[Rfam]
RNA sequence: GACACCCAUGAAUUGGGGACCUUUUGGGCGCGGCGCGCGUCUUCCGUUCGCGGUUGGCCGCCCGCGCCCGCUUCUUACCAAACCUACGUGCCUAUUCUGUCCGGCGGGGCGUCAAACCCCCGCCCCCACGGGAAUGCCCUCAGCACAUCUGUUCUACUUCACGCGAAAGCUUUGAGGUUACAGUC
Numbered sequence: 001g002a003c004a005c006c007c008a009u010g011a012a013u014u015g016g017g018g019a020c021c022u023u024u025u026g027g028g029c030g031c032g033g034c035g036c037g038c039g040u041c042u043u044c045c046g047u048u049c050g051c052g053g054u055u056g057g058c059c060g061c062c063c064g065c066g067c068c069c070g071c072u073u074c075u076u077a078c079c080a081a082a083c084c085u086a087c088g089u090g091c092c093u094a095u096u097c098u099g100u101c102c103g104g105c106g107g108g109g110c111g112u113c114a115a116a117c118c119c120c121c122g123c124c125c126c127c128a129c130g131g132g133a134a135u136g137c138c139c140u141c142a143g144c145a146c147a148u149c150u151g152u153u154c155u156a157c158u159u160c161a162c163g164c165g166a167a168a169g170c171u172u173u174g175a176g177g178u179u180a181c182a183g184u185c
Base pairs, nucleotide, nucleotide: 001185002184003183004178005177006176008148009147010146013143014142015141016140017139018138020136023134024133163170164169

Annotation
A member of the RNA family "Eukaryotic small subunit ribosomal RNA" from Strigomonas culicis, 185 nucleotides of a longer RNA. A reference for the family is Yusupov et al. (2001), "Crystal structure of the ribosome at 5.5 A resolution", Science. Pairs were carried over by alignment from the consensus structure, which is taken from published work. The source organism's lineage runs through Eukaryota, Euglenozoa, Trypanosomatidae, Strigomonadinae and Strigomonas.